[Rfam]
RNA: Small nucleolar RNA SNORA17
RNA sequence: AUUGCCGCUUAUGAAAAAUCAGUUGAAGCUGCUGCUGCAUCUGAUUCAUUCAAUGGCAAAAAUAAGGAAGAUUUGGAAAAUGUUAUUUCUGGAUCAACUGGAAAUGAAAAACAAAUUUUGACUUU
Number, nucleotide and partner (000 for none) at each position: 001a000002u059003u058004g057005c056006c055007g000008c000009u000010u000011a049012u000013g047014a046015a045016a000017a000018a000019u044020c043021a042022g041023u000024u039025g038026a000027a036028g035029c034030u000031g000032c000033u000034g029035c028036u027037g000038c025039a024040u000041c022042u021043g020044a019045u015046u014047c013048a000049u011050u000051c000052a000053a000054u000055g006056g005057c004058a003059a002060a000061a000062a000063u000064a000065a000066g122067g000068a119069a118070g117071a116072u115073u114074u113075g112076g000077a000078a000079a000080a000081u000082g000083u107084u106085a105086u103087u102088u101089c100090u000091g000092g000093a000094u000095c000096a000097a000098c000099u000100g089101g088102a087103a086104a000105u085106g084107a083108a000109a000110a000111a000112c075113a074114a073115a072116u071117u070118u069119u068120g000121a000122c066123u000124u000125u000